Rfam assigns this 84-nucleotide RNA from Cavia porcellus to the family "Small nucleolar RNA SNORD11B". Rfam links the family to the GO terms nucleolus and RNA processing. Lineage of the source: Eukaryota > Bilateria > Eutheria > Caviidae > Cavia. Clan: SNORD11 clan. The literature on the family includes a 2006 paper in Nucleic Acids Res by Yang et al., "snoSeeker: an advanced computational package for screening of guide and orphan snoRNA genes in the human genome".
RNA sequence: UGAUGGCGAUGAUGAUUUUUACAUGUAUUGUUCACCUGAUGACAGUAUGAGAGUGUUCAGUCACUACCUCAUCUGAUGCCAUCU
Numbered sequence: 001u002g003a004u005g006g007c008g009a010u011g012a013u014g015a016u017u018u019u020u021a022c023a024u025g026u027a028u029u030g031u032u033c034a035c036c037u038g039a040u041g042a043c044a045g046u047a048u049g050a051g052a053g054u055g056u057u058c059a060g061u062c063a064c065u066a067c068c069u070c071a072u073c074u075g076a077u078g079c080c081a082u083c084u
Stems, first nucleotide, its partner, number of pairs: 002083006